[Rfam]
RNA sequence: GUGCUUAUGGCAGAACCAUUCCCAGAGCUAUGACAAUGACACUGUUAACAGCUCUGGGAAUGGCACUGCCAUCGGCAC
Numbered sequence: 001g002u003g004c005u006u007a008u009g010g011c012a013g014a015a016c017c018a019u020u021c022c023c024a025g026a027g028c029u030a031u032g033a034c035a036a037u038g039a040c041a042c043u044g045u046u047a048a049c050a051g052c053u054c055u056g057g058g059a060a061u062g063g064c065a066c067u068g069c070c071a072u073c074g075g076c077a078c
Base pairs, nucleotide, nucleotide: 002077003076004075007072008071009070011068012067013066016063017062018061019060020059021058024055025054026053027052028051029050031048
mir-458 microRNA precursor family: a 78-nucleotide RNA sequence from Oenanthe oenanthe. The match comes from Rfam's covariance-model search (72 bits). For this family Rfam cites "The developmental miRNA profiles of zebrafish as determined by small RNA cloning" (Chen et al., Genes Dev, 2005). The family has 12 seed sequences and 1,011 matches in Rfam 15.1. Pairs were carried over by alignment from the consensus structure, which was predicted with RNAalifold.